[Rfam]
RNA: Purine riboswitch aptamer
RNA sequence: AUUUAAAAAUCGCUAAUAGCUCAUAUAUUUCUGAUAAUAUGGUUCAGAAGUCUCUACGAGGUAACCGUAAAAAUCCUCUCUAUGAGUAAACUAACUGGUAUU
Dot-bracket structure: ..................(((((((...((((((.........))))))........((((.............))))..)))))))...............